The record is a 584-nucleotide part of an RNA from Hepatocystis sp. ex Piliocolobus tephrosceles, which matches "Eukaryotic small subunit ribosomal RNA" in Rfam. The match comes from Rfam's covariance-model search (1316 bits). Its Rfam clan is "SSU clan". NCBI's taxonomy places the organism under Eukaryota, Sar, Aconoidasida, Haemosporida, Hepatocystis. Rfam links the family to the GO terms ribosome and structural constituent of ribosome.
[Rfam]
RNA sequence: GGAGCUUGCGGCUUAAUUUGACUCAACACGGGAAAUCUCACUAGUUUAAGACAAGAGUAGGAUUGACAGAUUGACUUUAGCUCUUUCUUGAUUUCUUGGAUGGUGAUGCAUGGCCGUUUUUAGUUCGUGAAAUUUGAUUUGUCUGGUUAAUUCCGAUAACGAACGAGACCUUACUUUGCUAAUUAGCGAUAAAUACAAGAUAUUCUUAAUUUAAAAAUAAGAUAAUAAAAAAAAAAAAAAAAGAAUUUGUUUAGAUUUUGCAUUUUUUAUUAAAAAAAUGUAUAUUUCUUUUACAGUAUUUUUUUUUUUUUUUUUUGACUUUGUUUGAUUAGGAAUGUAUUUAUUAAAAUUAAAAAGCUUCUUAGAGGAACGAUGUGUGUUUAACACAAGGAAGUUUAAGGCAACAACAGGUCUGUGAUGUCCUUAGAUAUACUAGGCUGCACGCGUGCUACACUGAUAUGUGUAGCGAGUAUUCAAUUUACACAAUAAAAAAAGAUGUAGUUAUUUUAACUAUGUUUUUAUUUUUUGUGUUCCUCCUUCACUGAAAAGUGUGGGUAAUCUUUUUUUCAAUACAUAUCGUGAUG
Dot-bracket structure: (.(((.((((((....((((........))))........(((((.(....(((((........((.(((...........))).))......)))))...((.((((..((((((((....(((((((((......)))...(((......)))...)))))).....((((.(((.((((..(((.........................................................................................................................................................................)))..)))))))..(..(((((.....)))))..).....)))).....))).)))...).))))))).....).)))))...)).)))).))).)...(((((((.....(((.................................................................((..((((....))))..))....))).........)))))))......